[Rfam]
RNA sequence: AUAUUCGAGACGAAGAUAUGGGUGACUAAUACUUAAGAUUUUGGUCAAUUUAAAUUACCAAUCUAAUUAUUUGUUACCCAUAUCUCCAUCUCCAAUUU
Numbered sequence: 001a002u003a004u005u006c007g008a009g010a011c012g013a014a015g016a017u018a019u020g021g022g023u024g025a026c027u028a029a030u031a032c033u034u035a036a037g038a039u040u041u042u043g044g045u046c047a048a049u050u051u052a053a054a055u056u057a058c059c060a061a062u063c064u065a066a067u068u069a070u071u072u073g074u075u076a077c078c079c080a081u082a083u084c085u086c087c088a089u090c091u092c093c094a095a096u097u098u
Stems, first nucleotide, its partner, number of pairs: 003096003007092004012087001014085013028071004033066003037062001041061005047056003
Dot-bracket structure: ..(((.((((.(.(((((((((((((.((((.(((.(...(((((.(((....))))))))).))).)))).))))))))))))).).)))).)))..

Background:
Shown here is a 98-nucleotide RNA sequence from Arabidopsis lyrata, a member of the family "MIR774 microRNA precursor family". The family has 4 seed sequences and 4 matches in Rfam 15.1. The organism belongs to Arabidopsis, within Eukaryota. The base pairs follow the family's consensus structure, which was predicted with RNAalifold. Its family is annotated with RISC complex and miRNA-mediated post-transcriptional gene silencing in the Gene Ontology.